[Rfam]
A member of the RNA family "Bacillaceae-1 RNA" from Bacillus mesophilus, 67 nucleotides long. By type it is a small RNA.
RNA sequence: AUUAAAGGAAGACAGGUUAAGGUCGCAACGUCCUGUUGCAACACCUGUCUGACCUGCCUCCUGCAGG
Numbered sequence: 001a002u003u004a005a006a007g008g009a010a011g012a013c014a015g016g017u018u019a020a021g022g023u024c025g026c027a028a029c030g031u032c033c034u035g036u037u038g039c040a041a042c043a044c045c046u047g048u049c050u051g052a053c054c055u056g057c058c059u060c061c062u063g064c065a066g067g
Stems, first nucleotide, its partner, number of pairs: 011049007025039005053067005
Dot-bracket structure: ..........(((((((.......(((((.....)))))...)))))))...(((((.....)))))

Overview
The match comes from Rfam's covariance-model search (81 bits).